[Rfam]
RNA sequence: UGACGGGCGAGCUUUUGGCCCGGGUUAUACCUGAUGCUCACGUAUAAGACGAGCAAAAAGCUUGUUGGUC
Numbered sequence: 001u002g003a004c005g006g007g008c009g010a011g012c013u014u015u016u017g018g019c020c021c022g023g024g025u026u027a028u029a030c031c032u033g034a035u036g037c038u039c040a041c042g043u044a045u046a047a048g049a050c051g052a053g054c055a056a057a058a059a060g061c062u063u064g065u066u067g068g069u070c
Stems, first nucleotide, its partner, number of pairs: 002070003006066002009063008018054001021051002025047006
Dot-bracket structure: .(((.((.((((((((.(..((..((((((...........))))))..))..).)))))))).)).)))
RNA: mir-208 microRNA precursor family
Organism: Pan troglodytes